[Rfam]
The record is a 79-nucleotide RNA sequence from Clostridium sp. CAG:226, which matches "Gut-1 RNA" in Rfam. The match comes from Rfam's covariance-model search (66 bits).

RNA sequence: CGGUGAAAUCCGUUCUUACGAACGGGUGAAAUUGCACUGACGCGCAGUGAAAUAUUGCUUGCGCAAUGUGAAAUCCGCC
Numbered sequence: 001c002g003g004u005g006a007a008a009u010c011c012g013u014u015c016u017u018a019c020g021a022a023c024g025g026g027u028g029a030a031a032u033u034g035c036a037c038u039g040a041c042g043c044g045c046a047g048u049g050a051a052a053u054a055u056u057g058c059u060u061g062c063g064c065a066a067u068g069u070g071a072a073a074u075c076c077g078c079c
Stems, first nucleotide, its partner, number of pairs: 008027008031048005052069007